Shown here is an 88-nucleotide sequence from Rhizobium sp. P32RR-XVIII, a member of the family "DUF3800-VII RNA". The match comes from Rfam's covariance-model search (54 bits). The family's consensus secondary structure is taken from published work. It is annotated as a small RNA.
RNA sequence: UGUGGGCAAGCGCCAGAAUUACUCCGAGUUACCUUCGAGGUGGCAGCAUCUUCGCGAUGUGCAUCAGGAGCUGGGGGCCCACACCCUC
Number, nucleotide and partner (000 for none) at each position: 001u083002g082003u081004g080005g079006g078007c077008a000009a000010g000011c075012g000013c074014c073015a072016g071017a000018a000019u000020u000021a000022c070023u069024c068025c067026g000027a000028g044029u043030u042031a041032c040033c039034u038035u000036c000037g000038a034039g033040g032041u031042g030043g029044c028045a000046g000047c059048a058049u057050c056051u000052u000053c000054g000055c000056g050057a049058u048059g047060u000061g000062c000063a000064u000065c000066a000067g025068g024069a023070g022071c016072u015073g014074g013075g011076g000077g007078c006079c005080c004081a003082c002083a001084c000085c000086c000087u000088c000